[Rfam]
RNA sequence: UGACGGGGGCCCGCACAAGCGGUGGAGUAUGUGGUUUAAUUCGACGCAACGCGAAGAACCUUACCAGGCCUUGACAUCCCUUGCGAAGUUCUAGAGAUAGGAUAGAGGUUAUCAAGGAGACAGGUGGUGCAUGGUUGUCGUCAGCUCGUGUCGUGAGAUGUUGGGUUAAGUCCCGCAACGAGCGCAACCCUUGUCUUCAGUUACCAUCAUUAAGUUGGGGACUCUGGAGAGACUGCCGGUGAUAAACCGGAGGAAGGUGGGGAUGACGUCAAAUCAUCAUGCCCCUUAUGGCCUGGGCUACACACGUACUACAAUGGCUAUUACAACGUGGAGCGACUGUGCGAACAGAAGCGAAUCACUGAAAGAUAGUCUCAGUUCGGAUUGGAGUCUGCAACUCGACUCCAUGAAGUUGGAAUCGCUAGUAAUCGCGGAUCAGCAUGCCGCGGUGAAUACGUUCUCGGGCCUUGUACACACCGCCCGUCAUACCAUGAGAGUUGGUAAUACCCGAAGCCGGUGGCCUAACCGAAAGGAAGGAGCCGUCGAAGGUAGGACUAAUGAUUGGGGUCAAGUCGUAACAAGG
Numbered sequence: 001u002g003a004c005g006g007g008g009g010c011c012c013g014c015a016c017a018a019g020c021g022g023u024g025g026a027g028u029a030u031g032u033g034g035u036u037u038a039a040u041u042c043g044a045c046g047c048a049a050c051g052c053g054a055a056g057a058a059c060c061u062u063a064c065c066a067g068g069c070c071u072u073g074a075c076a077u078c079c080c081u082u083g084c085g086a087a088g089u090u091c092u093a094g095a096g097a098u099a100g101g102a103u104a105g106a107g108g109u110u111a112u113c114a115a116g117g118a119g120a121c122a123g124g125u126g127g128u129g130c131a132u133g134g135u136u137g138u139c140g141u142c143a144g145c146u147c148g149u150g151u152c153g154u155g156a157g158a159u160g161u162u163g164g165g166u167u168a169a170g171u172c173c174c175g176c177a178a179c180g181a182g183c184g185c186a187a188c189c190c191u192u193g194u195c196u197u198c199a200g201u202u203a204c205c206a207u208c209a210u211u212a213a214g215u216u217g218g219g220g221a222c223u224c225u226g227g228a229g230a231g232a233c234u235g236c237c238g239g240u241g242a243u244a245a246a247c248c249g250g251a252g253g254a255a256g257g258u259g260g261g262g263a264u265g266a267c268g269u270c271a272a273a274u275c276a277u278c279a280u281g282c283c284c285c286u287u288a289u290g291g292c293c294u295g296g297g298c299u300a301c302a303c304a305c306g307u308a309c310u311a312c313a314a315u316g317g318c319u320a321u322u323a324c325a326a327c328g329u330g331g332a333g334c335g336a337c338u339g340u341g342c343g344a345a346c347a348g349a350a351g352c353g354a355a356u357c358a359c360u361g362a363a364a365g366a367u368a369g370u371c372u373c374a375g376u377u378c379g380g381a382u383u384g385g386a387g388u389c390u391g392c393a394a395c396u397c398g399a400c401u402c403c404a405u406g407a408a409g410u411u412g413g414a415a416u417c418g419c420u421a422g423u424a425a426u427c428g429c430g431g432a433u434c435a436g437c438a439u440g441c442c443g444c445g446g447u448g449a450a451u452a453c454g455u456u457c458u459c460g461g462g463c464c465u466u467g468u469a470c471a472c473a474c475c476g477c478c479c480g481u482c483a484u485a486c487c488a489u490g491a492g493a494g495u496u497g498g499u500a501a502u503a504c505c506c507g508a509a510g511c512c513g514g515u516g517g518c519c520u521a522a523c524c525g526a527a528a529g530g531a532a533g534g535a536g537c538c539g540u541c542g543a544a545g546g547u548a549g550g551a552c553u554a555a556u557g558a559u560u561g562g563g564g565u566c567a568a569g570u571c572g573u574a575a576c577a578a579g580g
Stems, first nucleotide, its partner, number of pairs: 001471002003468003007465007015455002019419005024312001026310008034301002040055004064296007077120002079117005088103006123285002126283004132279002134274003137270001139268002144183006150159003162175004189262004194230007204219002208217002233253002236250005316371007328359003333352002338347003378409001383404007425447007474579001476576001479572002485565003489561003494556006502548004510541001512539004518534003523530002
RNA: Bacterial small subunit ribosomal RNA, nucleotides 909 to 1488
Organism: Bulleidia extructa